Rfam assigns this 119-nucleotide RNA from Helianthus annuus to the family "U5 spliceosomal RNA".

RNA sequence: AGCCAUGCAAUGAGCACAAAGCGAACUAUUCUUUCGCCUUUUACUAAAGAAUACCGUGUGCUCGUUGUUUACAAAUGGCAUACGCCAAUUUUUGGAGAGCUCUUUCUUAUUGAAAGACU
Numbered sequence: 001a002g003c004c005a006u007g008c009a010a011u012g013a014g015c016a017c018a019a020a021g022c023g024a025a026c027u028a029u030u031c032u033u034u035c036g037c038c039u040u041u042u043a044c045u046a047a048a049g050a051a052u053a054c055c056g057u058g059u060g061c062u063c064g065u066u067g068u069u070u071a072c073a074a075a076u077g078g079c080a081u082a083c084g085c086c087a088a089u090u091u092u093u094g095g096a097g098a099g100c101u102c103u104u105u106c107u108u109a110u111u112g113a114a115a116g117a118c119u
Stems, first nucleotide, its partner, number of pairs: 003078004008067011027053008096119001101117005
U5 RNA is a component of both types of known spliceosome. The precise function of this molecule is unknown, though it is known that the 5' loop is required for splice site selection and p220 binding, and that both the 3' stem-loop and the Sm site are important for Sm protein binding and cap methylation. Taxonomically the source falls in Helianthus (Eukaryota, Tracheophyta, Magnoliopsida, Heliantheae). The family's consensus secondary structure is taken from published work.